Rfam assigns this 90-nucleotide RNA sequence from Salvia splendens to the family "mir-399 microRNA precursor family". NCBI's taxonomy places the organism under Eukaryota, Streptophyta, Embryophyta, Magnoliopsida, core Calosphace. mir-399 was identified in both Arabidopsis thaliana and Oryza sativa computationally and was later experimentally verified. mir-399 is thought to target mRNAs coding for a phosphatase transporter. The mature sequence is excised from the 3' arm of the hairpin. The match comes from Rfam's covariance-model search (62 bits).
RNA sequence: GAGAGAAUAACAGUGCGAUCCUCCUUCGGCAGGAAGAACAUGCACAUGCAUAUGUUUCUUGCCAAAGGAGAAUUGCCCUGCAAUUCAACC
Numbered sequence: 001g002a003g004a005g006a007a008u009a010a011c012a013g014u015g016c017g018a019u020c021c022u023c024c025u026u027c028g029g030c031a032g033g034a035a036g037a038a039c040a041u042g043c044a045c046a047u048g049c050a051u052a053u054g055u056u057u058c059u060u061g062c063c064a065a066a067g068g069a070g071a072a073u074u075g076c077c078c079u080g081c082a083a084u085u086c087a088a089c090c
Base pairs, nucleotide, nucleotide: 005086006085007084008083011080012079013078015076016075017074018073019072021070022069023068024067028063029062030061031060032059033058034057035056